[Rfam]
RNA sequence: GCGUGGGUCGGCCCGCUGCGUACUGGAACCAGCGGGCUGGGGGACACCGCCGCCCCAAUCCCCGCGGGCGGUGGACCGGUCCGGGAGGCGCGAGGCGUCCUCCCGGACCGAG
Numbered sequence: 001g002c003g004u005g006g007g008u009c010g011g012c013c014c015g016c017u018g019c020g021u022a023c024u025g026g027a028a029c030c031a032g033c034g035g036g037c038u039g040g041g042g043g044a045c046a047c048c049g050c051c052g053c054c055c056c057a058a059u060c061c062c063c064g065c066g067g068g069c070g071g072u073g074g075a076c077c078g079g080u081c082c083g084g085g086a087g088g089c090g091c092g093a094g095g096c097g098u099c100c101u102c103c104c105g106g107a108c109c110g111a112g
Base pairs, nucleotide, nucleotide: 002110006077007076008075009039010038011037012036013035014034015033016032017031018030040045047074048073049072050071051070052069053068054067055066078109079108080107081106082105083104084103085102086101087100088099089097090096
Rfam assigns this 112-nucleotide RNA from Streptomyces montanisoli to the family "Streptomyces RNA 4115". The base pairs follow the family's consensus structure. Rfam's curators write: Identified by deep sequencing of transcriptome at the end of exponential growth phase. Sequencing size consistent with notrthern blot size. Streptomyces specific. By type it is a small RNA. The organism belongs to Streptomyces, within Bacteria. A reference for the family is Vockenhuber et al. (2011), "Deep sequencing-based identification of small non-coding RNAs in Streptomyces coelicolor", RNA Biol.